[Rfam]
RNA: Ruegeria cis52 sRNA
Organism: Pseudooceanicola nitratireducens
Nucleotides: 179
Base pairs, nucleotide, nucleotide: 005140006139008137009136010135011134012133014131015130016128019126021124028123029122031120038113040111042109046105047104048103050101051100052099053098054097055075056074057073058072059071060070061069062068082096084094085093086092146179147178148176149175151172152171154165155164156163157162
Number, partner (000 for none) and nucleotide at each position: 001000u002000g003000c004000g005140c006139a007000g008137c009136g010135c011134g012133u013000g014131u015130u016128u017000c018000a019126g020000a021124a022000c023000g024000a025000u026000g027000u028123u029122g030000c031120g032000g033000a034000a035000g036000g037000a038113c039000a040111c041000g042109c043000c044000c045000u046105u047104g048103a049000g050101c051100c052099g053098c054097g055075c056074g057073g058072u059071g060070c061069g062068g063000a064000u065000g066000u067000a068062u069061u070060g071059c072058g073057c074056c075055g076000u077000c078000a079000u080000c081000a082096c083000c084094u085093c086092g087000g088000c089000c090000a091000u092086c093085g094084a095000c096082g097054c098053g099052c100051g101050g102000g103048u104047c105046a106000u107000g108000c109042g110000g111040g112000c113038g114000a115000u116000a117000u118000a119000g120031c121000c122029c123028a124021u125000g126019c127000c128016g129000u130015a131014a132000a133012g134011c135010g136009c137008g138000a139006u140005g141000g142000u143000c144000a145000g146179g147178a148176c149175g150000g151172g152171c153000a154165g155164g156163a157162a158000g159000a160000a161000g162157u163156u164155c165154u166000c167000g168000a169000a170000g171152g172151u173000g174000g175149c176148g177000u178147u179146u